[Rfam]
A member of the RNA family "Ribosomal protein L20 leader" from Secundilactobacillus similis, 128 nucleotides long. From the family's description: This family is a putative r-protein leader autoregulatory structure found in B. subtilis and other low-GC Gram-positive bacteria. It is located in the 5' untranslated regions of mRNAs encoding initiation factor 3 followed by ribosomal proteins L35 and L20 (infC-rpmI-rplT). A Rho-independent transcription terminator structure that is probably involved in regulation is included at the 3' end.
Nucleotides: 128
Stems, first nucleotide, its partner, number of pairs: 011026006028051003033046005091115009
Number, partner (000 for none) and nucleotide at each position: 001000a002000a003000a004000u005000g006000u007000a008000a009000g010000u011026a012025g013024a014023a015022g016021c017000a018000c019000c020000c021016g022015c023014u024013u025012c026011u027000c028051g029050c030049c031000u032000u033046g034045u035044g036043g037042c038000u039000a040000a041000c042037g043036c044035u045034g046033c047000u048000g049030g050029g051028c052000u053000g054000a055000u056000a057000c058000g059000u060000a061000a062000a063000u064000a065000a066000a067000c068000c069000g070000a071000a072000c073000u074000u075000u076000u077000u078000a079000g080000u081000u082000c083000g084000g085000a086000u087000a088000u089000u090000u091115a092114a093113c094112g095111g096110g097109u098108g099107c100000g101000c102000u103000g104000u105000u106000a107099g108098c109097a110096c111095c112094c113093g114092u115091u116000u117000u118000u119000u120000a121000u122000u123000u124000a125000g126000g127000u128000g
The literature on the family includes a 1994 paper in Prog Nucleic Acid Res Mol Biol by Zengel and Lindahl, "Diverse mechanisms for regulating ribosomal protein synthesis in Escherichia coli".